The family of this 74-nucleotide RNA sequence from Nonlabens ponticola is "Flavo-1 RNA".

[Rfam]
RNA sequence: UUCUAUGCGUUAAGGAUCGCAGCGGCAUCUCUCGCUUUUUUCUAGCGAGAAUAUAGCGUAGAGCCUGACCACCC
Numbered sequence: 001u002u003c004u005a006u007g008c009g010u011u012a013a014g015g016a017u018c019g020c021a022g023c024g025g026c027a028u029c030u031c032u033c034g035c036u037u038u039u040u041u042c043u044a045g046c047g048a049g050a051a052u053a054u055a056g057c058g059u060a061g062a063g064c065c066u067g068a069c070c071a072c073c074c
Base pairs, nucleotide, nucleotide: 013066014065015064017062018061022057023056027052028051030049033047034046035045036044
The organism belongs to Nonlabens, within Bacteria.
The family's RNA type in Rfam is small RNA.